Annotation:
The record is a 173-nucleotide RNA sequence from Phtheirospermum japonicum, which matches "mir-166 microRNA precursor family" in Rfam. A reference for the family is Reinhart et al. (2002), "MicroRNAs in plants", Genes Dev. The source organism's lineage runs through Eukaryota, Spermatophyta, eudicotyledons, lamiids and Phtheirospermum. Its family is annotated with miRNA-mediated post-transcriptional gene silencing and RISC complex in the Gene Ontology. A search with the family's covariance model found it, with a score of 81 bits. Rfam describes the family as follows. This family represents the plant microRNA (miRNA) precursor mir-166. The family's consensus secondary structure was predicted with PFOLD.
RNA sequence: UUUGAGGGGAAUGUUGUCUGGCUCGAGGAUUUUUACUUUGAUCUCUUAUUUUUUUCAAUUUUCUCACACACACACAUGUAUAUAUAUAUACAUACAUAUAUAUAUGUGUAUGUAUAUAUUUUUUUAUAGAUCUAGUUGUUAAUAUCGUCGGACCAGGCUUCAUUCCCCCCAAU
Numbered sequence: 001u002u003u004g005a006g007g008g009g010a011a012u013g014u015u016g017u018c019u020g021g022c023u024c025g026a027g028g029a030u031u032u033u034u035a036c037u038u039u040g041a042u043c044u045c046u047u048a049u050u051u052u053u054u055u056c057a058a059u060u061u062u063c064u065c066a067c068a069c070a071c072a073c074a075c076a077u078g079u080a081u082a083u084a085u086a087u088a089u090a091c092a093u094a095c096a097u098a099u100a101u102a103u104a105u106g107u108g109u110a111u112g113u114a115u116a117u118a119u120u121u122u123u124u125u126a127u128a129g130a131u132c133u134a135g136u137u138g139u140u141a142a143u144a145u146c147g148u149c150g151g152a153c154c155a156g157g158c159u160u161c162a163u164u165c166c167c168c169c170c171a172a173u
Stems, first nucleotide, its partner, number of pairs: 002172003006168008016158006024150003